[Rfam]
RNA sequence: GCUAAUUAAACAUUUGUACCGUAGACAGUAGGGGCUUACAAGCUUAAUUUCCUACCGAGGUCAUGACGAUAUAUAUAACAGGAAACUGUUAUUCGUGAUGCCUCCAUGUCUUAUAGAUAUGGAGGUUUUCCAUUGAGUCG
Numbered sequence: 001g002c003u004a005a006u007u008a009a010a011c012a013u014u015u016g017u018a019c020c021g022u023a024g025a026c027a028g029u030a031g032g033g034g035c036u037u038a039c040a041a042g043c044u045u046a047a048u049u050u051c052c053u054a055c056c057g058a059g060g061u062c063a064u065g066a067c068g069a070u071a072u073a074u075a076u077a078a079c080a081g082g083a084a085a086c087u088g089u090u091a092u093u094c095g096u097g098a099u100g101c102c103u104c105c106a107u108g109u110c111u112u113a114u115a116g117a118u119a120u121g122g123a124g125g126u127u128u129u130c131c132a133u134u135g136a137g138u139c140g
Stems, first nucleotide, its partner, number of pairs: 028055006034043003101125010

The record is a 140-nucleotide RNA from Mangrovibacillus cuniculi, which matches "Ribosomal protein L10 leader" in Rfam. The organism belongs to Mangrovibacillus, within Bacteria. A reference for the family is Iben and Draper (2008), "Specific interactions of the L10(L12)4 ribosomal protein complex with mRNA, rRNA, and L11", Biochemistry. By type it is a cis-regulatory leader. Rfam's curators write: This family is a putative r-protein leader autoregulatory structure found in B. subtilis and other low-GC Gram-positive bacteria.